[Rfam]
Nitrogen stress-induced RNA 1: a 57-nucleotide sequence from Phormidium tenue. The match comes from Rfam's covariance-model search (45 bits). For this family Rfam cites "Heterocyst-specific transcription of NsiR1, a non-coding RNA encoded in a tandem array of direct repeats in cyanobacteria" (Ionescu et al., J Mol Biol, 2010). Rfam classes the family as a small RNA.
RNA sequence: CGGUAGAUGCACCCUGAUUCAGACCCCUGAGGAUAGCUAACUCAGGGGUCUUUUUGU
Number, nucleotide and partner (000 for none) at each position: 001c000002g013003g012004u011005a000006g000007a000008u000009g000010c000011a004012c003013c002014c000015u000016g000017a000018u000019u000020c000021a000022g000023a049024c048025c047026c046027c045028u044029g043030a042031g041032g000033a000034u000035a000036g000037c000038u000039a000040a000041c031042u030043c029044a028045g027046g026047g025048g024049u023050c000051u000052u000053u000054u000055u000056g000057u000